This 93-nucleotide RNA from Branchiostoma floridae belongs to the Rfam family "mir-2060 microRNA precursor family". The match comes from Rfam's covariance-model search (73 bits).
[Rfam]
RNA sequence: GUUUUCCUGUGUGUGAAAAGUGUUCAGUACCAGGGACAGGUGUGUUUGCCUAUGUGUGGUUGUGUUCAGCGCCAAGGACAGGUGUGUUUACCU
Numbered sequence: 001g002u003u004u005u006c007c008u009g010u011g012u013g014u015g016a017a018a019a020g021u022g023u024u025c026a027g028u029a030c031c032a033g034g035g036a037c038a039g040g041u042g043u044g045u046u047u048g049c050c051u052a053u054g055u056g057u058g059g060u061u062g063u064g065u066u067c068a069g070c071g072c073c074a075a076g077g078a079c080a081g082g083u084g085u086g087u088u089u090a091c092c093u
Base pairs, nucleotide, nucleotide: 004084006082007081008080009079010078020072021071022070023069024068026066027065028064029063030062032061034055036053038051039050040049041048042047
Its family is annotated with RISC complex and miRNA-mediated post-transcriptional gene silencing in the Gene Ontology.